[Rfam]
RNA sequence: GAAAGAUUGUUUAUAAGAGUAUUAUAAGUCACUACAUUUGGUAAAACCAAGUGUUGCUUUCCCAAACGAAGUGACUUAUAAUACUCUUAUGAAUAGAUUUUGCA
Numbered sequence: 001g002a003a004a005g006a007u008u009g010u011u012u013a014u015a016a017g018a019g020u021a022u023u024a025u026a027a028g029u030c031a032c033u034a035c036a037u038u039u040g041g042u043a044a045a046a047c048c049a050a051g052u053g054u055u056g057c058u059u060u061c062c063c064a065a066a067c068g069a070a071g072u073g074a075c076u077u078a079u080a081a082u083a084c085u086c087u088u089a090u091g092a093a094u095a096g097a098u099u100u101u102g103c104a
Stems, first nucleotide, its partner, number of pairs: 003101006010093009020083014035068001037066005043060003047056001

A member of the RNA family "MIR400 microRNA precursor family" from Eutrema salsugineum, 104 nucleotides long.
Pairs were carried over by alignment from the consensus structure, which was predicted with RNAalifold.